[Rfam]
RNA sequence: GUCCUCCGACCUGACACAACGUCCUGCAGCGAUGUUGUGCGACCUGCAGUGUCAUCUGUCGGAGGGC
Numbered sequence: 001g002u003c004c005u006c007c008g009a010c011c012u013g014a015c016a017c018a019a020c021g022u023c024c025u026g027c028a029g030c031g032a033u034g035u036u037g038u039g040c041g042a043c044c045u046g047c048a049g050u051g052u053c054a055u056c057u058g059u060c061g062g063a064g065g066g067c
Stems, first nucleotide, its partner, number of pairs: 001067004006062005018036006041053003